[Rfam]
RNA sequence: GCUGGGUACAGUGGCGUGUGCCUGUAAUCCUUGCUGCUGGGAAGCUGAGGCUGGUGGAUUGCUUGAGUCUGGGGUUCCUGUCCUGCAUCAGGCUAUGCUGAGCAAGUGUCCACACUAAGCUGUGCAUCAAUAUGGGGUUCCUGGGGGAGCCUAGGAGUUCCAGGUUGUCUAAAGAGGGGUGAACAGGCCCAGGCUGGAAACAGAGCAGGUCAAAGCCCUCAUGUUCAGCAGUAGUGGGACUGCACUUGUGAAUAGAUGGUGCAGUGCAGCCUGGGUAAGAUAGUAAGACCCAGCCUCCU
Numbered sequence: 001g002c003u004g005g006g007u008a009c010a011g012u013g014g015c016g017u018g019u020g021c022c023u024g025u026a027a028u029c030c031u032u033g034c035u036g037c038u039g040g041g042a043a044g045c046u047g048a049g050g051c052u053g054g055u056g057g058a059u060u061g062c063u064u065g066a067g068u069c070u071g072g073g074g075u076u077c078c079u080g081u082c083c084u085g086c087a088u089c090a091g092g093c094u095a096u097g098c099u100g101a102g103c104a105a106g107u108g109u110c111c112a113c114a115c116u117a118a119g120c121u122g123u124g125c126a127u128c129a130a131u132a133u134g135g136g137g138u139u140c141c142u143g144g145g146g147g148a149g150c151c152u153a154g155g156a157g158u159u160c161c162a163g164g165u166u167g168u169c170u171a172a173a174g175a176g177g178g179g180u181g182a183a184c185a186g187g188c189c190c191a192g193g194c195u196g197g198a199a200a201c202a203g204a205g206c207a208g209g210u211c212a213a214a215g216c217c218c219u220c221a222u223g224u225u226c227a228g229c230a231g232u233a234g235u236g237g238g239a240c241u242g243c244a245c246u247u248g249u250g251a252a253u254a255g256a257u258g259g260u261g262c263a264g265u266g267c268a269g270c271c272u273g274g275g276u277a278a279g280a281u282a283g284u285a286a287g288a289c290c291c292a293g294c295c296u297c298c299u
Base pairs, nucleotide, nucleotide: 001045002044003043004023005022006021007020008019009018010017028042029041030040047297048296049295050294051293052292053291054290059286060285061284062283063282067276068275069274070273071272072271073270078269079268080267081266083264084263085262086261087260088259089258090257093255094254095253096252098250102249103248104247105246106245107244108243109242110238111237113236114235115234116233117232119229120228121227122226124224125223126222127221128167129166130165131164133162134161135160136159137158138157139156140155141154142153143152144151145150168174176219177218178217179216180215186211187210188209189208194203195202196201
Dot-bracket structure: ((((((((((......)))))))....(((.........)))))).((((((((....(((((...(((((((....((((.((((((((..((((.(...((((((((((.(((((.((((.((((((((.(((((((((((((....))))))))))))).))))(.....).(((((.....((((....(((....)))....))))...))))).)))).))))..)))))))...))))))))).)))).)))))))).))))))))))).....)))))...))))))))..
Description: A member of the RNA family "Metazoan signal recognition particle RNA" from Microcaecilia unicolor, 299 nucleotides long. The family's consensus secondary structure is taken from published work. Rfam links the family to the GO terms SRP-dependent cotranslational protein targeting to membrane, signal sequence recognition and signal recognition particle, endoplasmic reticulum targeting. It scores 254 bits against the family's covariance model.